[Rfam]
RNA sequence: CGCGGGGACCUUUACAACGGAUCGUCCGGCACGUUCCUGCCGGUGAAGGAGAGGCAA
Numbered sequence: 001c002g003c004g005g006g007g008a009c010c011u012u013u014a015c016a017a018c019g020g021a022u023c024g025u026c027c028g029g030c031a032c033g034u035u036c037c038u039g040c041c042g043g044u045g046a047a048g049g050a051g052a053g054g055c056a057a
Base pairs, nucleotide, nucleotide: 009049010048011047012046013045014044026043027042028041029040030039031038
RNA: msiK RNA